[Rfam]
RNA sequence: UGGUAGAUGCACCCUGAUUUCAGCCCCUGGCCUCGGCUAGGGGUUUUUUGU
Numbered sequence: 001u002g003g004u005a006g007a008u009g010c011a012c013c014c015u016g017a018u019u020u021c022a023g024c025c026c027c028u029g030g031c032c033u034c035g036g037c038u039a040g041g042g043g044u045u046u047u048u049u050g051u
Stems, first nucleotide, its partner, number of pairs: 002013003024043008
RNA: Nitrogen stress-induced RNA 1